[Rfam]
RNA sequence: CAGCUUGAUAGAGGCGCGGGAUUUAUCAGUACCUUCUGAAAGAUGCGGCAGGGAAGCCGACAGAAGAGAAAGGAAAUACCGCCGAAGGAGCCGGAACCCCAACCCCGGUUUCUGGGACGAUGCAGAAGAUGCAGCGUACUGUCACACAUGUGGAGCGCUAUCGGAAGA
Numbered sequence: 001c002a003g004c005u006u007g008a009u010a011g012a013g014g015c016g017c018g019g020g021a022u023u024u025a026u027c028a029g030u031a032c033c034u035u036c037u038g039a040a041a042g043a044u045g046c047g048g049c050a051g052g053g054a055a056g057c058c059g060a061c062a063g064a065a066g067a068g069a070a071a072g073g074a075a076a077u078a079c080c081g082c083c084g085a086a087g088g089a090g091c092c093g094g095a096a097c098c099c100c101a102a103c104c105c106c107g108g109u110u111u112c113u114g115g116g117a118c119g120a121u122g123c124a125g126a127a128g129a130u131g132c133a134g135c136g137u138a139c140u141g142u143c144a145c146a147c148a149u150g151u152g153g154a155g156c157g158c159u160a161u162c163g164g165a166a167g168a
Stems, first nucleotide, its partner, number of pairs: 006163006016082004021077004033066006086113009114140002117137003121133004142153004
Dot-bracket structure: .....((((((....((((.((((........((((((......................)))))).......)))).))))...(((((((((..........)))))))))((.(((.((((.....)))).))).)).((((....))))....)))))).....
The record is a 168-nucleotide RNA sequence from Allocoprococcus comes, which matches "Lysine riboswitch aptamer" in Rfam. Taxonomically the source falls in Allocoprococcus comes (Bacteria, Lachnospirales, Lachnospiraceae, Allocoprococcus). Pairs were carried over by alignment from the consensus structure, which is taken from published work. Riboswitches are metabolite binding domains within certain messenger RNAs that serve as precision sensors for their corresponding targets.